RNA sequence: UUGCAUUGAAAAGGGACGGGCUAUCUUUAUGGAUUGUUUCGUAUAAUUUUGAUGCGAGAUAAUAGAGAGGCGCACUGUUACUCUUCAUCACUUUUUCUGUGAACGGAGAGUGUCAAGCGCUUCCCACAAUU
Numbered sequence: 001u002u003g004c005a006u007u008g009a010a011a012a013g014g015g016a017c018g019g020g021c022u023a024u025c026u027u028u029a030u031g032g033a034u035u036g037u038u039u040c041g042u043a044u045a046a047u048u049u050u051g052a053u054g055c056g057a058g059a060u061a062a063u064a065g066a067g068a069g070g071c072g073c074a075c076u077g078u079u080a081c082u083c084u085u086c087a088u089c090a091c092u093u094u095u096u097c098u099g100u101g102a103a104c105g106g107a108g109a110g111u112g113u114c115a116a117g118c119g120c121u122u123c124c125c126a127c128a129a130u131u
Base pairs, nucleotide, nucleotide: 003055004054005053006052007051008050009049010048011047016042017041018040019039020038024033025032026031065125067123068122069121070120071119072118073117076115077114079112080111081110082109083108084107085106086105089101090100091099